[Rfam]
RNA sequence: AUGAUGAUACUUCCGUAAUUCGCGGCCCGGUCAGAAUGUAGGCGGGGUGGCUGAGAUGCCAAUGG
Numbered sequence: 001a002u003g004a005u006g007a008u009a010c011u012u013c014c015g016u017a018a019u020u021c022g023c024g025g026c027c028c029g030g031u032c033a034g035a036a037u038g039u040a041g042g043c044g045g046g047g048u049g050g051c052u053g054a055g056a057u058g059c060c061a062a063u064g065g
Stems, first nucleotide, its partner, number of pairs: 012062001013025004026047003030043003048061003
This 65-nucleotide RNA belongs to the Rfam family "pemK RNA". By type it is a cis-regulatory element. Rfam's curators put it in the seed alignment.